Rfam assigns this 101-nucleotide RNA from Thalassobacillus cyri to the family "Purine riboswitch aptamer". The source organism's lineage runs through Bacteria, Bacillati, Bacillota, Caryophanales and Thalassobacillus. Rfam links the family to the GO term purine nucleobase biosynthetic process. A search with the family's covariance model found it, with a score of 85 bits.
Nucleotides: 101
Stems, first nucleotide, its partner, number of pairs: 019086007029047006057077007
Number, partner (000 for none) and nucleotide at each position: 001000u002000a003000g004000a005000a006000a007000u008000u009000g010000a011000a012000u013000a014000g015000a016000g017000c018000a019086c020085c021084u022083c023082a024081u025080a026000u027000a028000a029047g030046a031045c032044g033043g034042g035000a036000a037000u038000a039000u040000g041000g042034c043033c044032c045031g046030u047029u048000c049000g050000u051000c052000u053000c054000u055000a056000c057077c058076c059075g060074g061073c062072a063071a064000c065000c066000u067000u068000a069000a070000a071063u072062u073061g074060c075059c076058g077057g078000a079000c080025u081024a082023u083022g084021a085020g086019g087000a088000a089000g090000a091000u092000g093000g094000a095000u096000c097000a098000u099000u100000g101000c